[Rfam]
RNA: TPP riboswitch aptamer (THI element)
Organism: Jeongeupia sacculi
RNA sequence: AGCCUUGACUCGGGGCGCCGCCCGGGGCGCUUUGCGCAGGCGGCUGAGAGGAACCCGCACACCUGAUCUGGAUCAUGCCAGCGUAGGGAAGUCGUAUGGCUUCCCU
Dot-bracket structure: .....(((((((((.((((((..................)))))......)..))))....((((..((((......))))..))))..)))))............